[Rfam]
RNA sequence: GUCUUACAGGAGCCGAAACUUCCUAGGAAGUGCGGGGGACGAUAUAUUAUGAACGCAAAAUGUCCGGAGGUCAAUCUUUUUUUUCAAGCCGGCCGUCUAUCGUUCGUUUGGGGUGAAUCUCGCAGCCGCGAGUAGGGACUAACCUUUGGUCCGAACCCGACAACUAACCUCGUAGGCAAUAGACACCAAAGGA
Numbered sequence: 001g002u003c004u005u006a007c008a009g010g011a012g013c014c015g016a017a018a019c020u021u022c023c024u025a026g027g028a029a030g031u032g033c034g035g036g037g038g039a040c041g042a043u044a045u046a047u048u049a050u051g052a053a054c055g056c057a058a059a060a061u062g063u064c065c066g067g068a069g070g071u072c073a074a075u076c077u078u079u080u081u082u083u084u085c086a087a088g089c090c091g092g093c094c095g096u097c098u099a100u101c102g103u104u105c106g107u108u109u110g111g112g113g114u115g116a117a118u119c120u121c122g123c124a125g126c127c128g129c130g131a132g133u134a135g136g137g138a139c140u141a142a143c144c145u146u147u148g149g150u151c152c153g154a155a156c157c158c159g160a161c162a163a164c165u166a167a168c169c170u171c172g173u174a175g176g177c178a179a180u181a182g183a184c185a186c187c188a189a190a191g192g193a
Stems, first nucleotide, its partner, number of pairs: 012177003018031003032173006040110002111158003119132004135152003139149001